[Rfam]
RNA sequence: CUAGCACUUUCACAUGUCCUACCCACACAAUAGGGCCAGGAUUUGGUGUCUGGUCCUGAAAAAAAACCCUUGACUGAAUCCUUGGUCUGGAACUGUACCAGCAGCAGCUAUCUCUCAAUGGCACAAAG
Numbered sequence: 001c002u003a004g005c006a007c008u009u010u011c012a013c014a015u016g017u018c019c020u021a022c023c024c025a026c027a028c029a030a031u032a033g034g035g036c037c038a039g040g041a042u043u044u045g046g047u048g049u050c051u052g053g054u055c056c057u058g059a060a061a062a063a064a065a066a067c068c069c070u071u072g073a074c075u076g077a078a079u080c081c082u083u084g085g086u087c088u089g090g091a092a093c094u095g096u097a098c099c100a101g102c103a104g105c106a107g108c109u110a111u112c113u114c115u116c117a118a119u120g121g122c123a124c125a126a127a128g
Stems, first nucleotide, its partner, number of pairs: 003057002006054003013045002017041004022035003068121002070118004076112001078111002082107003086103001087101004
The record is a 128-nucleotide sequence from Phyllostomus discolor, which matches "Small nucleolar RNA SNORA30/SNORA37 family" in Rfam. Taxonomically the source falls in Phyllostomus (Eukaryota, Eumetazoa, Vertebrata, Boreoeutheria). Rfam's curators write: The members of this family belong to the H/ACA class of snoRNAs that guide the sites of modification of uridines to pseudouridines. This family includes human ACA30 (SNORA30), ACA37 (SNORA37) and the mouse homolog MBI-26. Both ACA37 and ACA30 are predicted to guide the pseudouridylation of residue U4643 of 28S rRNA. The base pairs follow the family's consensus structure, which was predicted with RNAfold. A reference for the family is Huttenhofer et al. (2001), "RNomics: an experimental approach that identifies 201 candidates for novel, small, non-messenger RNAs in mouse", EMBO J. Its family is annotated with nucleolus and RNA processing in the Gene Ontology.